This 128-nucleotide RNA sequence from Peptoclostridium litorale belongs to the Rfam family "Molybdenum/Tungsten riboswitch aptamer (Moco RNA motif)". The base pairs follow the family's consensus structure, which is taken from published work.
RNA sequence: UAAUAAGGACUUCUCCGAGUUUGUGAUCCUGAGGCGAAUGAGACUAGAGUCGCUAUGGAAGCAAACCUAUAGGGUUUAUCUGGAAACGGAUGGGCCUCCCGGUGGAAAGGAGAGUUGGGUGAGAACUA
Numbered sequence: 001u002a003a004u005a006a007g008g009a010c011u012u013c014u015c016c017g018a019g020u021u022u023g024u025g026a027u028c029c030u031g032a033g034g035c036g037a038a039u040g041a042g043a044c045u046a047g048a049g050u051c052g053c054u055a056u057g058g059a060a061g062c063a064a065a066c067c068u069a070u071a072g073g074g075u076u077u078a079u080c081u082g083g084a085a086a087c088g089g090a091u092g093g094g095c096c097u098c099c100c101g102g103u104g105g106a107a108a109g110g111a112g113a114g115u116u117g118g119g120u121g122a123g124a125a126c127u128a
Stems, first nucleotide, its partner, number of pairs: 004121001011114006019066006027059003033054004072097011098105002